[Rfam]
RNA sequence: GGGCUGGCGUACCGCCUGGUCUCCAGCCGCCAAGGCCGAUCCUGGCACUUCUUCCCCGGUGCCAGGGACCGGCCGCAGCGGAUGGGGACCAGGCGGUAUGGACGCCCGCCG
Dot-bracket structure: .........(((((((.((.(((((.((((...(((((..((((((((..........))))))))...)))))...)))).))))).)).))))))).............
This 111-nucleotide RNA from Actinorhabdospora filicis belongs to the Rfam family "mraW RNA". The family has 45 seed sequences and 851 matches in Rfam 15.1. NCBI's taxonomy places the organism under Bacteria, Bacillati, Micromonosporales, Micromonosporaceae, Actinorhabdospora. The base pairs follow the family's consensus structure, which is taken from published work. A search with the family's covariance model found it, with a score of 68 bits. It is annotated as a cis-regulatory element.